Rfam assigns this 115-nucleotide RNA sequence from Leptospira borgpetersenii to the family "Leptospira sRNA 30_292".
RNA sequence: AAAUAGAUCAGUAUGGACAUAUCUGGGAGCAAAAUGUAUUUACUCGAAGAAAAACAAACACAACUGAAAGGGGAUCAAACCUUGACUUGCGCAGGAUGCAGAUCAAAAGUCACGC
Numbered sequence: 001a002a003a004u005a006g007a008u009c010a011g012u013a014u015g016g017a018c019a020u021a022u023c024u025g026g027g028a029g030c031a032a033a034a035u036g037u038a039u040u041u042a043c044u045c046g047a048a049g050a051a052a053a054a055c056a057a058a059c060a061c062a063a064c065u066g067a068a069a070g071g072g073g074a075u076c077a078a079a080c081c082u083u084g085a086c087u088u089g090c091g092c093a094g095g096a097u098g099c100a101g102a103u104c105a106a107a108a109g110u111c112a113c114g115c
Stems, first nucleotide, its partner, number of pairs: 009029001012026001015024003035079001037077001039074003044067003082106004087101005

From the family's description: Identified by RNA seq and Northern blot on cells grown to exponential phase at 30 degree C. It is annotated as a small RNA. Lineage of the source: Bacteria > Pseudomonadati > Leptospiria > Leptospiraceae > Leptospira borgpetersenii.